[Rfam]
RNA sequence: AUCAUCGUGAGGUGGUGUCUGAAGGAGAUGCGGAAAAUCGAGAGACCCGAAGUCGGCCAUGCAGACCCAAAUGCAGAAGUGUAAAGGUACAGCGGCAUGGUAAGUUGGUGACCAUCCGAAAUUAAUGGGAAAUCCUUCAUUGACAACUAACCUAUGAAUCAGCCGAUUAGUUGUAGCUUACUGUGUGAUGGUACUGGGUAUGUAUGGAAGGAAGGUGUG
Number, nucleotide and partner (000 for none) at each position: 001a016002u015003c014004a013005u012006c011007g000008u000009g000010a000011g006012g005013u004014g003015g002016u001017g000018u000019c000020u000021g000022a000023a000024g000025g000026a000027g000028a000029u000030g000031c000032g000033g000034a000035a000036a000037a000038u000039c000040g000041a000042g000043a000044g000045a000046c219047c000048c217049g216050a000051a000052g000053u212054c211055g000056g000057c000058c206059a205060u204061g203062c202063a000064g201065a199066c198067c197068c196069a195070a000071a000072u000073g000074c000075a000076g000077a000078a000079g000080u000081g000082u000083a000084a000085a000086g000087g194088u193089a192090c191091a000092g000093c000094g000095g186096c185097a184098u000099g182100g181101u180102a179103a178104g177105u176106u000107g134108g133109u132110g000111a000112c128113c127114a126115u125116c000117c000118g000119a000120a000121a000122u000123u000124a000125a115126u114127g113128g112129g000130a000131a000132a109133u108134c107135c000136u000137u000138c000139a000140u000141u000142g000143a000144c000145a000146a000147c000148u000149a000150a000151c000152c000153u000154a000155u000156g000157a000158a000159u000160c000161a000162g000163c000164c000165g000166a000167u000168u000169a000170g000171u000172u000173g000174u000175a000176g105177c104178u103179u102180a101181c100182u099183g000184u097185g096186u095187g000188a000189u000190g000191g090192u089193a088194c087195u069196g068197g067198g066199u065200a000201u064202g062203u061204a060205u059206g058207g000208a000209a000210g000211g054212a053213a000214g000215g000216u049217g048218u000219g046

The record is a 219-nucleotide RNA from Lentibacillus sp. CBA3610, which matches "Group II catalytic intron D1-D4-3" in Rfam. The source organism's lineage runs through Bacteria, Bacilli, Caryophanales, Bacillaceae and Lentibacillus.